The family of this 336-nucleotide RNA sequence from Cephus cinctus is "Arthropod 7SK RNA". It scores 124 bits against the family's covariance model. The organism belongs to Cephus, within Eukaryota. Rfam 15.1 lists 229 matches to the family in 137 species. Clan: 7SK clan. Rfam classes the family as a non-coding RNA gene.

RNA sequence: GGAAGUGUGUGCUAGUGAUGGCACAGCUGAACAUUGAUCGCUAACGUAGAUAUAUGGCAGAUCUGCUCAGUGGGUGUUGUCACGUGGUCGCUUCAAGUAGCUUGUGUUCGGCUCCCGAUUGCGCUAGCAACUGCCGGGUAGGUGCGGUGCGUGAUUGCUUCGCGGCUUCACGUAUCUCCAACCCGGUUCUUGCAUGCCUGCACGGUUGAGUCUUCACGUCGCUCCUCGAACUACCGCGAUUUCCAAAUUGGGGGGCAAUCGAAUAGGUCAGACGAGGUAAUUUGUCGCUUCCAUAUACAGGCACUAUGGGGUGCCCGUAGUAUGCCAUGUUUUUUA
Numbered sequence: 001g002g003a004a005g006u007g008u009g010u011g012c013u014a015g016u017g018a019u020g021g022c023a024c025a026g027c028u029g030a031a032c033a034u035u036g037a038u039c040g041c042u043a044a045c046g047u048a049g050a051u052a053u054a055u056g057g058c059a060g061a062u063c064u065g066c067u068c069a070g071u072g073g074g075u076g077u078u079g080u081c082a083c084g085u086g087g088u089c090g091c092u093u094c095a096a097g098u099a100g101c102u103u104g105u106g107u108u109c110g111g112c113u114c115c116c117g118a119u120u121g122c123g124c125u126a127g128c129a130a131c132u133g134c135c136g137g138g139u140a141g142g143u144g145c146g147g148u149g150c151g152u153g154a155u156u157g158c159u160u161c162g163c164g165g166c167u168u169c170a171c172g173u174a175u176c177u178c179c180a181a182c183c184c185g186g187u188u189c190u191u192g193c194a195u196g197c198c199u200g201c202a203c204g205g206u207u208g209a210g211u212c213u214u215c216a217c218g219u220c221g222c223u224c225c226u227c228g229a230a231c232u233a234c235c236g237c238g239a240u241u242u243c244c245a246a247a248u249u250g251g252g253g254g255g256c257a258a259u260c261g262a263a264u265a266g267g268u269c270a271g272a273c274g275a276g277g278u279a280a281u282u283u284g285u286c287g288c289u290u291c292c293a294u295a296u297a298c299a300g301g302c303a304c305u306a307u308g309g310g311g312u313g314c315c316c317g318u319a320g321u322a323u324g325c326c327a328u329g330u331u332u333u334u335u336a
Stems, first nucleotide, its partner, number of pairs: 001292007015083005027070003032065002036063004040058004300326003303321008